[Rfam]
RNA sequence: CCAGAUAAUCCAUUAUCUGAGCUUAAGUGGCAUGCUAAAUUAGUAAUAAGUUAGUGUGAAGCCCACCUAAAUCCAUCUUAAACAUUUCAAUAAUUAGCUAAGAUGGUGAGCUAGAUAUCUAUGAAUAACAUUUGUGAAUCC
Numbered sequence: 001c002c003a004g005a006u007a008a009u010c011c012a013u014u015a016u017c018u019g020a021g022c023u024u025a026a027g028u029g030g031c032a033u034g035c036u037a038a039a040u041u042a043g044u045a046a047u048a049a050g051u052u053a054g055u056g057u058g059a060a061g062c063c064c065a066c067c068u069a070a071a072u073c074c075a076u077c078u079u080a081a082a083c084a085u086u087u088c089a090a091u092a093a094u095u096a097g098c099u100a101a102g103a104u105g106g107u108g109a110g111c112u113a114g115a116u117a118u119c120u121a122u123g124a125a126u127a128a129c130a131u132u133u134g135u136g137a138a139u140c141c
Stems, first nucleotide, its partner, number of pairs: 002019006027066004031058008040049003081094001084091002095113004118138001120136004
Dot-bracket structure: .((((((......)))))).......((((((((((((.(((....))).))))))))....))))..............(..((....))..)((((...........))))....(.((((.........)))).)...
Background
A member of the RNA family "Group II catalytic intron D1-D4-7" from Pseudozyma flocculosa, 141 nucleotides long. About the family: Group II introns are found in rRNA, tRNA and mRNA of organelles in fungi, plants and protists, and also in mRNA in bacteria. It scores 45 bits against the family's covariance model. NCBI's taxonomy places the organism under Eukaryota, Fungi, Dikarya, Ustilaginomycotina, Pseudozyma. The base pairs follow the family's consensus structure.